[Rfam]
RNA: Glm Y RNA activator of glmS mRNA
Organism: Erwinia sorbitola
RNA sequence: AGUGGCUCAUUCACCUGGUUAUGACAGCCCUGCGCAAGCGGACAAGUGCCCAUAACAUCCAGAAUGACGCACAAUACGGUGCCUGUCGUCCACCUCACCGAUAAUCGUUCACUCUGUGACGUUAUCAAACAUCGGACGCAACGUUGAGUUAGGCACCACCUA
Numbered sequence: 001a002g003u004g005g006c007u008c009a010u011u012c013a014c015c016u017g018g019u020u021a022u023g024a025c026a027g028c029c030c031u032g033c034g035c036a037a038g039c040g041g042a043c044a045a046g047u048g049c050c051c052a053u054a055a056c057a058u059c060c061a062g063a064a065u066g067a068c069g070c071a072c073a074a075u076a077c078g079g080u081g082c083c084u085g086u087c088g089u090c091c092a093c094c095u096c097a098c099c100g101a102u103a104a105u106c107g108u109u110c111a112c113u114c115u116g117u118g119a120c121g122u123u124a125u126c127a128a129a130c131a132u133c134g135g136a137c138g139c140a141a142c143g144u145u146g147a148g149u150u151a152g153g154c155a156c157c158a159c160c161u162a
Stems, first nucleotide, its partner, number of pairs: 005070002007067006019055005027049002078157007087138005100126005140150003